[Rfam]
RNA sequence: ACAAAGGCUCUUUUCAGAGCCACCCACUAAUUUCAUAAAAAGAGCUU
Numbered sequence: 001a002c003a004a005a006g007g008c009u010c011u012u013u014u015c016a017g018a019g020c021c022a023c024c025c026a027c028u029a030a031u032u033u034c035a036u037a038a039a040a041a042g043a044g045c046u047u
Stems, first nucleotide, its partner, number of pairs: 006021006
RNA: Histone 3' UTR stem-loop
Organism: Catharus fuscescens